The family of this 69-nucleotide RNA is "tRNA". Rfam's curators put it in the seed alignment.

RNA sequence: GUAAAUAUAGUUUAACCAAAACAUCAGAUUGUGAAUCUGACAACAGAGGCUCACGACCCCUUAUUUACC
Dot-bracket structure: (((((((..((((.....)))).(((((.......)))))....((.((.......)).))))))))).